[Rfam]
Nucleotides: 127
Stems, first nucleotide, its partner, number of pairs: 008079005014028004029050008051074007099123010
Number, partner (000 for none) and nucleotide at each position: 001000a002000a003000a004000a005000a006000g007000g008079g009078u010077c011076a012075g013000u014028u015027g016026g017025c018000u019000a020000a021000a022000u023000a024000u025017g026016c027015c028014a029050c030049g031048u032047u033046c034045a035044c036043c037000c038000u039000c040000g041000u042000u043036g044035g045034u046033g047032a048031a049030u050029g051074c052073u053072g054071u055070a056069u057068g058000g059000c060000u061000a062000u063000c064000a065000a066000g067000a068057c069056a070055u071054a072053u073052g074051g075012c076011u077010g078009a079008c080000a081000u082000a083000a084000u085000u086000u087000c088000u089000g090000g091000a092000a093000a094000c095000g096000a097000a098000u099123a100122g101121g102120g103119u104118u105117g106116g107115c108114u109000c110000g111000c112000u113000u114108g115107g116106c117105c118104g119103a120102c121101c122100c123099u124000c125000c126000a127000u
Notes
This 127-nucleotide sequence from Abrus precatorius belongs to the Rfam family "U11 spliceosomal RNA". The source organism's lineage runs through Eukaryota, Viridiplantae, Magnoliopsida, rosids and Abrus. It is annotated as a spliceosomal small nuclear RNA.